[Rfam]
RNA sequence: AUUGAGAGUAGAAGCUGUCAACGCACGUGCAUGAGAUUUUUUUUGAAAUUUUCAGCAUCGUGCUGUGGGUCAUUGCUCCAAUA
Numbered sequence: 001a002u003u004g005a006g007a008g009u010a011g012a013a014g015c016u017g018u019c020a021a022c023g024c025a026c027g028u029g030c031a032u033g034a035g036a037u038u039u040u041u042u043u044u045g046a047a048a049u050u051u052u053c054a055g056c057a058u059c060g061u062g063c064u065g066u067g068g069g070u071c072a073u074u075g076c077u078c079c080a081a082u083a
Stems, first nucleotide, its partner, number of pairs: 006078005015068001019069001021066003024062004
The record is an 83-nucleotide sequence from Acinetobacter marinus, which matches "Xanthine riboswitch aptamer (NMT1 RNA)" in Rfam. Pairs were carried over by alignment from the consensus structure, which is taken from published work.